The record is a 54-nucleotide sequence from Megalops atlanticus, which matches "UnaL2 LINE 3' element" in Rfam.
RNA sequence: AAUUGAAACAUAUGUAAGUCACUCUGGAUAAAAGCGUCUGCUAAAUGACAAUAA
Numbered sequence: 001a002a003u004u005g006a007a008a009c010a011u012a013u014g015u016a017a018g019u020c021a022c023u024c025u026g027g028a029u030a031a032a033a034g035c036g037u038c039u040g041c042u043a044a045a046u047g048a049c050a051a052u053a054a
Stems, first nucleotide, its partner, number of pairs: 013043001014041003020036001022034002025031001

It is annotated as a cis-regulatory element.
The match comes from Rfam's covariance-model search (56 bits).